The family of this 491-nucleotide part of an RNA from Cafeteria roenbergensis is "Eukaryotic large subunit ribosomal RNA". NCBI's taxonomy places the organism under Eukaryota, Stramenopiles, Bicosoecida, Cafeteriaceae, Cafeteria. A search with the family's covariance model found it, with a score of 3074 bits.
RNA sequence: CCCUCCGAAAUUUCCCUUAGGAUAGCUGCAACUGUAUCCAGUUUUAUCAGGUAAAGCGAAUGAUUAGAGGAUUCAGGGCCGGAAUGGCCUUGACCUAUUCUCAAACUUUAAAUGGGUAAGAAGGGAGGCCUUGCUUAUAUGAAGGCCUCUCGCGAAUGGAAGUUGUUAGUGGGCCACAGCAGGUAAGCUGCUGCGGCGAUGCGGGAUGAACCGAACGUGGUGUUAAAGCGCCGGACUGUCCGCUCAUCAGAUCCCACAAAAGGUGUUGGUUCAUAUAGACAGCAGGACGGUGGCCAUGGAAGUUGGAAUCCGCUAAGGAGUGUGUAACAACUCACCUGCCGAAUGAAUUAGCCCUGAAAAUGGAUGGCGCUGUAGCGGACGGCUUAUACACCACCACCGGGCCAAGUUGGACGGCCCGGUGAGUAGGAGGGCGUGGCGCUCGCGGAGAAGGCCUGGGCGUGAGCCCGGCUCGAGCGGGCGCUAGUGCAGAU
Numbered sequence: 001c002c003c004u005c006c007g008a009a010a011u012u013u014c015c016c017u018u019a020g021g022a023u024a025g026c027u028g029c030a031a032c033u034g035u036a037u038c039c040a041g042u043u044u045u046a047u048c049a050g051g052u053a054a055a056g057c058g059a060a061u062g063a064u065u066a067g068a069g070g071a072u073u074c075a076g077g078g079c080c081g082g083a084a085u086g087g088c089c090u091u092g093a094c095c096u097a098u099u100c101u102c103a104a105a106c107u108u109u110a111a112a113u114g115g116g117u118a119a120g121a122a123g124g125g126a127g128g129c130c131u132u133g134c135u136u137a138u139a140u141g142a143a144g145g146c147c148u149c150u151c152g153c154g155a156a157u158g159g160a161a162g163u164u165g166u167u168a169g170u171g172g173g174c175c176a177c178a179g180c181a182g183g184u185a186a187g188c189u190g191c192u193g194c195g196g197c198g199a200u201g202c203g204g205g206a207u208g209a210a211c212c213g214a215a216c217g218u219g220g221u222g223u224u225a226a227a228g229c230g231c232c233g234g235a236c237u238g239u240c241c242g243c244u245c246a247u248c249a250g251a252u253c254c255c256a257c258a259a260a261a262g263g264u265g266u267u268g269g270u271u272c273a274u275a276u277a278g279a280c281a282g283c284a285g286g287a288c289g290g291u292g293g294c295c296a297u298g299g300a301a302g303u304u305g306g307a308a309u310c311c312g313c314u315a316a317g318g319a320g321u322g323u324g325u326a327a328c329a330a331c332u333c334a335c336c337u338g339c340c341g342a343a344u345g346a347a348u349u350a351g352c353c354c355u356g357a358a359a360a361u362g363g364a365u366g367g368c369g370c371u372g373u374a375g376c377g378g379a380c381g382g383c384u385u386a387u388a389c390a391c392c393a394c395c396a397c398c399g400g401g402c403c404a405a406g407u408u409g410g411a412c413g414g415c416c417c418g419g420u421g422a423g424u425a426g427g428a429g430g431g432c433g434u435g436g437c438g439c440u441c442g443c444g445g446a447g448a449a450g451g452c453c454u455g456g457g458c459g460u461g462a463g464c465c466c467g468g469c470u471c472g473a474g475c476g477g478g479c480g481c482u483a484g485u486g487c488a489g490a491u
Base pairs, nucleotide, nucleotide: 001431002430003429004428005427006426011024013022014021015020028166029165030164031163032162033161042121043120044119045118046117047116048115054109055107056106061103062102063101066098068096069095070094073093074092075091076090077089078088080086124150125149126148127147128146129145130144131143132142173197174196175195177193178192179191180190181189182188202213203212204211217394218393219392220391221390223388227384228383229382236381238380241377242376243375261355262354263353265352266351267350268349269348270347271346272345273344274343282339283338284337285336286335288312289311290310294306295305313317318333322331323330395421396420397419398418399417400416401415402414403413432486434483435482436481437480438479439478440477441476442475443474450470451469456465457464458463